[Rfam]
RNA sequence: GUUGACUUCAUGGGAGAAGUCUAUAUUAUUAGUCACAGCUUAAAAGUAAUACCUUUUAUACACUCCAUUUCGAAGCUUUAUUAGUAUCUCGUCCUGUAGUUUUUAAAUAUCAUUUAUUUUUUGUGCUAUUACGUCUGACUCUGAUGAUAGUCAGCAAUUUCUUUUUUUAUACAGGAUAUACAUUAUGUCUAAUACAGUUACUGGUACAGUAAAAUGGUUCAACGAGUCUAAAGGCUUCGGUUUCAUCGCACAAGAAAAUGGCGCAGACGUUUUUGCUCAUUUCAGUGCAAUCAAAAGCGAAGGUUUCAAAACUUUAGCUGAAGGCCAACGUGUAGAGUUCACUCUUUCACAAGGUCAGAAAGGUCCUCAGGCUGACAACAUCGUUCCACUUUAAUUUUAAAGUGAAAUAAUGAAAAAAGACAGCAAUUGCUGUCUUUUUUGUG
Numbered sequence: 001g002u003u004g005a006c007u008u009c010a011u012g013g014g015a016g017a018a019g020u021c022u023a024u025a026u027u028a029u030u031a032g033u034c035a036c037a038g039c040u041u042a043a044a045a046g047u048a049a050u051a052c053c054u055u056u057u058a059u060a061c062a063c064u065c066c067a068u069u070u071c072g073a074a075g076c077u078u079u080a081u082u083a084g085u086a087u088c089u090c091g092u093c094c095u096g097u098a099g100u101u102u103u104u105a106a107a108u109a110u111c112a113u114u115u116a117u118u119u120u121u122u123g124u125g126c127u128a129u130u131a132c133g134u135c136u137g138a139c140u141c142u143g144a145u146g147a148u149a150g151u152c153a154g155c156a157a158u159u160u161c162u163u164u165u166u167u168u169a170u171a172c173a174g175g176a177u178a179u180a181c182a183u184u185a186u187g188u189c190u191a192a193u194a195c196a197g198u199u200a201c202u203g204g205u206a207c208a209g210u211a212a213a214a215u216g217g218u219u220c221a222a223c224g225a226g227u228c229u230a231a232a233g234g235c236u237u238c239g240g241u242u243u244c245a246u247c248g249c250a251c252a253a254g255a256a257a258a259u260g261g262c263g264c265a266g267a268c269g270u271u272u273u274u275g276c277u278c279a280u281u282u283c284a285g286u287g288c289a290a291u292c293a294a295a296a297g298c299g300a301a302g303g304u305u306u307c308a309a310a311a312c313u314u315u316a317g318c319u320g321a322a323g324g325c326c327a328a329c330g331u332g333u334a335g336a337g338u339u340c341a342c343u344c345u346u347u348c349a350c351a352a353g354g355u356c357a358g359a360a361a362g363g364u365c366c367u368c369a370g371g372c373u374g375a376c377a378a379c380a381u382c383g384u385u386c387c388a389c390u391u392u393a394a395u396u397u398u399a400a401a402g403u404g405a406a407a408u409a410a411u412g413a414a415a416a417a418a419g420a421c422a423g424c425a426a427u428u429g430c431u432g433u434c435u436u437u438u439u440u441g442u443g
Stems, first nucleotide, its partner, number of pairs: 004021006029253002032249002045243001048242003052234004060229001062227002066224001068222002072220002075218003079187003083183001085182001092176007105121003189204003193200001256347003260343002266274002277335001279333002282330001286327002288324001292317001294315003299312001352367003369391003374385003396401001413440012
RNA: cspA thermoregulator